[Rfam]
RNA sequence: AGCCGUUCCGUGGGAGAGCGCAGAUCCGUCUGCCGCCGAAGGCGCAAUUUCACCCGAAAACGCUCAGGCAAAAGGACCGCGGAACCGAA
Numbered sequence: 001a002g003c004c005g006u007u008c009c010g011u012g013g014g015a016g017a018g019c020g021c022a023g024a025u026c027c028g029u030c031u032g033c034c035g036c037c038g039a040a041g042g043c044g045c046a047a048u049u050u051c052a053c054c055c056g057a058a059a060a061c062g063c064u065c066a067g068g069c070a071a072a073a074g075g076a077c078c079g080c081g082g083a084a085c086c087g088a089a
Stems, first nucleotide, its partner, number of pairs: 006084008020033004035069003038065002042063003048058002
Rfam assigns this 89-nucleotide RNA from Dechloromonas sp. HYN0024 to the family "Glycine riboswitch aptamer". From the family's description: This family represents the bacterial glycine riboswitch.